The family of this 68-nucleotide sequence from Prevotella sp. tc2-28 is "abiF RNA". The match comes from Rfam's covariance-model search (38 bits). The base pairs follow the family's consensus structure, which is taken from published work. The source organism's lineage runs through Bacteria, Pseudomonadati, Bacteroidota, Bacteroidales and Prevotella. By type it is a small RNA.
RNA sequence: CCCGCCAAGCCUCUCCGCUCGACUUAGGUCGCUUGCCUAAGCCAAGAACGAUGCUCAAAUGUGCGGGU
Numbered sequence: 001c002c003c004g005c006c007a008a009g010c011c012u013c014u015c016c017g018c019u020c021g022a023c024u025u026a027g028g029u030c031g032c033u034u035g036c037c038u039a040a041g042c043c044a045a046g047a048a049c050g051a052u053g054c055u056c057a058a059a060u061g062u063g064c065g066g067g068u
Stems, first nucleotide, its partner, number of pairs: 001067005008055003